[Rfam]
Shown here is a 111-nucleotide RNA from Cohnella sp. CIP 111063, a member of the family "epsC RNA". The family's RNA type in Rfam is cis-regulatory element. Pairs were carried over by alignment from the consensus structure, which is taken from published work.
RNA sequence: AGGUAAUGUCUCCUGCACCUCUAUCACCGGAGGCACUCGGUCAUGCUGUGGGUCAGCCGACCUUAGACGUUUAUCGUCAAGGGUAUGACGUGAGGAAGGGUUAAAUGCCCA
Numbered sequence: 001a002g003g004u005a006a007u008g009u010c011u012c013c014u015g016c017a018c019c020u021c022u023a024u025c026a027c028c029g030g031a032g033g034c035a036c037u038c039g040g041u042c043a044u045g046c047u048g049u050g051g052g053u054c055a056g057c058c059g060a061c062c063u064u065a066g067a068c069g070u071u072u073a074u075c076g077u078c079a080a081g082g083g084u085a086u087g088a089c090g091u092g093a094g095g096a097a098g099g100g101u102u103a104a105a106u107g108c109c110c111a
Stems, first nucleotide, its partner, number of pairs: 001020004007035007036094004040089008050063005066078004098110004